[Rfam]
RNA: Small nucleolar RNA SNORA30/SNORA37 family
Organism: Carlito syrichta
RNA sequence: UUAGCACUUUCACAGAUCCUCCCCCAGGCAGUGGCACCAAGAUUUGGUAGCCUGUGGUGAGAGAAAACCCCUGAUUGCAUCCUUGGCUUGGGAACUGUACCAGUGGCAGCUGUCACUCAGUGGGAGAGAA
Numbered sequence: 001u002u003a004g005c006a007c008u009u010u011c012a013c014a015g016a017u018c019c020u021c022c023c024c025c026a027g028g029c030a031g032u033g034g035c036a037c038c039a040a041g042a043u044u045u046g047g048u049a050g051c052c053u054g055u056g057g058u059g060a061g062a063g064a065a066a067a068c069c070c071c072u073g074a075u076u077g078c079a080u081c082c083u084u085g086g087c088u089u090g091g092g093a094a095c096u097g098u099a100c101c102a103g104u105g106g107c108a109g110c111u112g113u114c115a116c117u118c119a120g121u122g123g124g125a126g127a128g129a130a
Base pairs, nucleotide, nucleotide: 003058005056006055007054013046014045015044017042018041020039024034025033068124069123070122071120072119073118074117076115077114079113080112083109084108085107087105088103089102090101091100